[Rfam]
RNA: Bacillus sRNA ncr1575
Organism: Candidatus Kurthia intestinigallinarum
RNA sequence: AUCCUAUAAACGAAAGGAAUGAGGGUGGCCGAUGAAGUAGUCUUAUUUUUUAACGAACGAAGUGAACAAAACUUUGCGUAAAAAAUAGGAUUAGUCUGCCCAAAUUCAAUUUAUACAGAGAAACGUCAUCAGCAUGGCUUUCUUAUACAACCGCUAGAGUGGCGGAGUAUGCCUGAAUUUCAGGAAACACUCUCUGACUAAUCCUUCCAAAAUUUUUUGGAGGGAUUUUUAU
Numbered sequence: 001a002u003c004c005u006a007u008a009a010a011c012g013a014a015a016g017g018a019a020u021g022a023g024g025g026u027g028g029c030c031g032a033u034g035a036a037g038u039a040g041u042c043u044u045a046u047u048u049u050u051u052a053a054c055g056a057a058c059g060a061a062g063u064g065a066a067c068a069a070a071a072c073u074u075u076g077c078g079u080a081a082a083a084a085a086u087a088g089g090a091u092u093a094g095u096c097u098g099c100c101c102a103a104a105u106u107c108a109a110u111u112u113a114u115a116c117a118g119a120g121a122a123a124c125g126u127c128a129u130c131a132g133c134a135u136g137g138c139u140u141u142c143u144u145a146u147a148c149a150a151c152c153g154c155u156a157g158a159g160u161g162g163c164g165g166a167g168u169a170u171g172c173c174u175g176a177a178u179u180u181c182a183g184g185a186a187a188c189a190c191u192c193u194c195u196g197a198c199u200a201a202u203c204c205u206u207c208c209a210a211a212a213u214u215u216u217u218u219g220g221a222g223g224g225a226u227u228u229u230u231a232u
Stems, first nucleotide, its partner, number of pairs: 017107003023101003028096001030094001038093013054078002058076006116175003123168002126165002129162003200227011